Background
Rfam assigns this 82-nucleotide sequence from Streptomyces boluensis to the family "nrdJ RNA". The family's consensus secondary structure is taken from published work.
RNA sequence: ACCUGUCAUGGGCGGCGCAAGCGGCGUCCACGGCAUCAGACACACACCGUGCCAUGGGAAGAACGUGGCACUUCAGGGCGUU
Numbered sequence: 001a002c003c004u005g006u007c008a009u010g011g012g013c014g015g016c017g018c019a020a021g022c023g024g025c026g027u028c029c030a031c032g033g034c035a036u037c038a039g040a041c042a043c044a045c046a047c048c049g050u051g052c053c054a055u056g057g058g059a060a061g062a063a064c065g066u067g068g069c070a071c072u073u074c075a076g077g078g079c080g081u082u
Stems, first nucleotide, its partner, number of pairs: 004035004009030006016023002049071008
Dot-bracket structure: ...((((.((((((.((....)).)))))).)))).............((((((((.......))))))))...........
By type it is a small RNA.